[Rfam]
RNA sequence: UGGAAUAAUCGCUUUUUUGUAUUUGUCUAGUAGGCAUUUUAUAAAAAGAUGCCCUC
Numbered sequence: 001u002g003g004a005a006u007a008a009u010c011g012c013u014u015u016u017u018u019g020u021a022u023u024u025g026u027c028u029a030g031u032a033g034g035c036a037u038u039u040u041a042u043a044a045a046a047a048g049a050u051g052c053c054c055u056c
Base pairs, nucleotide, nucleotide: 033053034052035051036050037049038048039047040046
Rfam assigns this 56-nucleotide RNA sequence from Denticeps clupeoides to the family "U7 small nuclear RNA". Rfam describes the family as follows. Animal histone pre-mRNAs are spliced by a different mechanism than nuclear pre-mRNAs and self-splicing introns. This processing involves the U7 snRNP, which contains only one RNA species: U7. The base pairs follow the family's consensus structure, which was predicted with PFOLD. A search with the family's covariance model found it, with a score of 39 bits. On this family, see Spycher et al., Nucleic Acids Res 1994: "3' end processing of mouse histone pre-mRNA: evidence for additional base-pairing between U7 snRNA and pre-mRNA".